[Rfam]
A member of the RNA family "TPP riboswitch aptamer (THI element)" from Halosaccharopolyspora lacisalsi, 109 nucleotides long. Gene Ontology term of the family: thiamine pyrophosphate binding. Lineage of the source: Bacteria > Bacillati > Actinomycetes > Pseudonocardiaceae > Halosaccharopolyspora. The base pairs follow the family's consensus structure, which is taken from published work.
Nucleotides: 109
Stems, first nucleotide, its partner, number of pairs: 007096001009094002011060004017034005041054005065090004071084004
Number, partner (000 for none) and nucleotide at each position: 001000u002000u003000g004000g005000u006000g007096a008000a009094g010093c011060a012059c013058g014057g015000g016000a017034g018033u019032c020031c021030g022000u023000a024000c025000g026000a027000g028000a029000g030021c031020g032019g033018a034017c035000u036000g037000a038000g039000a040000g041054g042053g043052g044051g045050c046000u047000g048000a049000c050045g051044c052043c053042c054041c055000g056000a057014c058013c059012g060011u061000c062000g063000a064000a065090c066089c067088u068087g069000a070000u071084c072083c073082g074081g075000a076000u077000g078000a079000u080000a081074c082073c083072g084071g085000c086000g087068c088067a089066g090065g091000g092000a093010g094009c095000g096007u097000g098000u099000g100000a101000g102000u103000g104000u105000c106000c107000g108000a109000a